[Rfam]
Source information
The family of this 87-nucleotide RNA from Homo sapiens is "mir-613 microRNA precursor family". The source organism's lineage runs through Eukaryota, Craniata, Primates, Hominidae and Homo.
RNA sequence: GGUGAGUGCGUUUCCAAGUGUGAAGGGACCCUUCCUGUAGUGUCUUAUAUACAAUACAGUAGGAAUGUUCCUUCUUUGCCACUCAUA
Numbered sequence: 001g002g003u004g005a006g007u008g009c010g011u012u013u014c015c016a017a018g019u020g021u022g023a024a025g026g027g028a029c030c031c032u033u034c035c036u037g038u039a040g041u042g043u044c045u046u047a048u049a050u051a052c053a054a055u056a057c058a059g060u061a062g063g064a065a066u067g068u069u070c071c072u073u074c075u076u077u078g079c080c081a082c083u084c085a086u087a
Base pairs, nucleotide, nucleotide: 002086003085004084005083006082007081008080018079019078020077022074023073024072025071026070027069028068029067030063031062032061035059036058037057038056039055041053042052043051